[Rfam]
RNA: Fluoride riboswitch aptamer (crcB RNA motif)
Organism: Weizmannia acidilactici
RNA sequence: AAACGAUAAGGCGAUGGAGUUCGCCAUAACCGCCUGCGGGCUGAUGACUCCUGCUGAUAU
Numbered sequence: 001a002a003a004c005g006a007u008a009a010g011g012c013g014a015u016g017g018a019g020u021u022c023g024c025c026a027u028a029a030c031c032g033c034c035u036g037c038g039g040g041c042u043g044a045u046g047a048c049u050c051c052u053g054c055u056g057a058u059a060u
Base pairs, nucleotide, nucleotide: 010025011024012023013022016051017050018049019048020047021046032041033040034039
Dot-bracket structure: .........[[[[..((((((]]]]......(((....)))....)))))).........